[Rfam]
RNA: BsrC
RNA sequence: ACUAACUUAAGCAACGUAAACCCUACCUGCUUUUACGUCCUUGCGACCCUUUAGUCGCGCCAGUGUGAAUAAGUGUUCUAAAAAAAUA
Numbered sequence: 001a002c003u004a005a006c007u008u009a010a011g012c013a014a015c016g017u018a019a020a021c022c023c024u025a026c027c028u029g030c031u032u033u034u035a036c037g038u039c040c041u042u043g044c045g046a047c048c049c050u051u052u053a054g055u056c057g058c059g060c061c062a063g064u065g066u067g068a069a070u071a072a073g074u075g076u077u078c079u080a081a082a083a084a085a086a087u088a
Stems, first nucleotide, its partner, number of pairs: 036067002040063002042059006